[Rfam]
RNA sequence: GGAGCCCCUCACGCGGCGCUAUCUGACUGAACUCCCCCAGGGCCGGAAGGCAGCAAGGGUAGGUCGGCUCUGGCGGGUGCGUGGGGGGCGUCUGC
Numbered sequence: 001g002g003a004g005c006c007c008c009u010c011a012c013g014c015g016g017c018g019c020u021a022u023c024u025g026a027c028u029g030a031a032c033u034c035c036c037c038c039a040g041g042g043c044c045g046g047a048a049g050g051c052a053g054c055a056a057g058g059g060u061a062g063g064u065c066g067g068c069u070c071u072g073g074c075g076g077g078u079g080c081g082u083g084g085g086g087g088g089c090g091u092c093u094g095c
Base pairs, nucleotide, nucleotide: 004089005088006087007086008085009084010083011082012081013080014077017075018074019073020072021071023067024066025065026064027063028062034059035058036057042051043050044049
The record is a 95-nucleotide RNA from Streptomyces brasiliensis, which matches "Bacterial small signal recognition particle RNA" in Rfam.
NCBI's taxonomy places the organism under Bacteria, Bacillati, Actinomycetota, Streptomycetaceae, Streptomyces.
The family's consensus secondary structure is taken from published work.